[Rfam]
Nucleotides: 161
Stems, first nucleotide, its partner, number of pairs: 003039001006035001008034004017028004044068001047065001049063001076160005096148010108120004123135004
Number, partner (000 for none) and nucleotide at each position: 001000u002000c003039g004000a005000c006035u007000g008034u009033a010032c011031u012000u013000g014000c015000a016000c017028a018027g019026g020025a021000u022000c023000a024000c025020u026019u027018c028017u029000a030000c031011a032010g033009u034008g035006a036000c037000u038000c039003c040000u041000c042000u043000u044068g045000c046000a047065u048000a049063c050000a051000c052000a053000a054000c055000a056000g057000u058000c059000a060000c061000c062000a063049g064000a065047a066000c067000a068044c069000c070000a071000u072000a073000c074000a075000a076160u077159c078158u079157c080156u081000c082000a083000u084000g085000a086000u087000g088000a089000u090000g091000a092000u093000g094000g095000u096148c097147a098146a099145u100144c101143u102142u103141c104140u105139c106000a107000a108120g109119a110118g111117g112000a113000c114000u115000u116000g117111c118110u119109u120108c121000a122000c123135g124134c125133u126132u127000a128000a129000u130000g131000a132126a133125a134124g135123c136000u137000u138000a139105g140104a141103g142102a143101a144100g145099a146098u147097u148096g149000g150000a151000u152000c153000u154000g155000a156080a157079g158078a159077g160076a161000u
Description
ACEA small nucleolar RNA U3: a 161-nucleotide RNA sequence from Symbiodinium microadriaticum. Rfam 15.1 lists 2,156 matches to the family in 132 species. The family is grouped with related families in Rfam's "U3 clan". For this family Rfam cites "Comparative analysis of eukaryotic U3 snoRNA" (Marz and Stadler, RNA Biol, 2010). Small nucleolar RNAs (snoRNAs) are involved in the processing and modification of rRNA in the nucleolus. There are two main classes of snoRNAs: the box C/D class, and the box H/ACA class. U3 snoRNA is a member of the box C/D class. Indeed, the box C/D element is a subset of the six short sequence elements found in all U3 snoRNAs, namely boxes A, A', B, C, C', and D. The U3 snoRNA secondary structure is characterised by a small 5' domain (with boxes A and A'), and a larger 3' domain (with boxes B, C, C', and D), the two domains being linked by a single-stranded hinge. The family's RNA type in Rfam is C/D-box small nucleolar RNA.